Record summary: The record is a 127-nucleotide sequence from Tatumella ptyseos, which matches "Enterobacteria greA leader" in Rfam. Rfam links the family to the GO term regulation of gene expression. It scores 95 bits against the family's covariance model. Rfam classes the family as a cis-regulatory leader.
[Rfam]
RNA sequence: GCAAUACUACGUCCCCUUAUAGGGCAAAGUAAACGAUGACCCAUAGGGAACUCCGGGGUAAAAUACGUAUCAAAAUGAAAAAUUGAUCCUUGUCUGUGGUGAAUAUUGCCCCGGACAGGGUUGUUUU
Numbered sequence: 001g002c003a004a005u006a007c008u009a010c011g012u013c014c015c016c017u018u019a020u021a022g023g024g025c026a027a028a029g030u031a032a033a034c035g036a037u038g039a040c041c042c043a044u045a046g047g048g049a050a051c052u053c054c055g056g057g058g059u060a061a062a063a064u065a066c067g068u069a070u071c072a073a074a075a076u077g078a079a080a081a082a083u084u085g086a087u088c089c090u091u092g093u094c095u096g097u098g099g100u101g102a103a104u105a106u107u108g109c110c111c112c113g114g115a116c117a118g119g120g121u122u123g124u125u126u127u
Stems, first nucleotide, its partner, number of pairs: 001040001004037002010035002015029001041048002057071004088120009098110001